RNA sequence: UUCUGUCACCUGUUGAGUAUCCUACCGGGCUUUUCGCAGGUGACCAUUUGUUAAUAAUAGGAGUGCAUAGUGGCCCGUAUCGCUGGCAUUAACAUUCCUGAU
Numbered sequence: 001u002u003c004u005g006u007c008a009c010c011u012g013u014u015g016a017g018u019a020u021c022c023u024a025c026c027g028g029g030c031u032u033u034u035c036g037c038a039g040g041u042g043a044c045c046a047u048u049u050g051u052u053a054a055u056a057a058u059a060g061g062a063g064u065g066c067a068u069a070g071u072g073g074c075c076c077g078u079a080u081c082g083c084u085g086g087c088a089u090u091a092a093c094a095u096u097c098c099u100g101a102u
Stems, first nucleotide, its partner, number of pairs: 005044009021086002026077004034101002
RNA: Alpha operon ribosome binding site